[Rfam]
RNA sequence: GGGGGCGGAUCGGGCCCGGUGGCCCGCCUGGUCUUCAAAAUCAGUGCGCGGGGUGACGAGCCUCGCGGGUGGGUUCGACUCCCAUGCGCCCCC
Numbered sequence: 001g002g003g004g005g006c007g008g009a010u011c012g013g014g015c016c017c018g019g020u021g022g023c024c025c026g027c028c029u030g031g032u033c034u035u036c037a038a039a040a041u042c043a044g045u046g047c048g049c050g051g052g053g054u055g056a057c058g059a060g061c062c063u064c065g066c067g068g069g070u071g072g073g074u075u076c077g078a079c080u081c082c083c084a085u086g087c088g089c090c091c092c093c
Base pairs, nucleotide, nucleotide: 001093002092003091004090005089006088007087009085011026012025013024014023015022016021028044029043030042031041032040047067048066049065050064051063070084071083072082073081
Annotation:
A member of the RNA family "Selenocysteine transfer RNA" from Sphaerobacter thermophilus, 93 nucleotides long. A search with the family's covariance model found it, with a score of 74 bits. Its Rfam clan is "tRNA clan".